Repression of heat shock gene expression (ROSE) element: a 68-nucleotide sequence from Pseudomonas fulva. Rfam links the family to the GO terms response to temperature stimulus and regulation of translation. It is one of the family's seed sequences. Taxonomically the source falls in Pseudomonas fulva (Bacteria, Pseudomonadati, Pseudomonadota, Pseudomonadaceae). It is annotated as an RNA thermoregulator.
RNA sequence: CGUGGGAUGCCGAAGUCGGGUCCCGCAACUUAUCACUCGCUGACUAAUUCAGGAGAUUAACCAUGAGC
Numbered sequence: 001c002g003u004g005g006g007a008u009g010c011c012g013a014a015g016u017c018g019g020g021u022c023c024c025g026c027a028a029c030u031u032a033u034c035a036c037u038c039g040c041u042g043a044c045u046a047a048u049u050c051a052g053g054a055g056a057u058u059a060a061c062c063a064u065g066a067g068c
Stems, first nucleotide, its partner, number of pairs: 002026007010019003031056001036055003040052004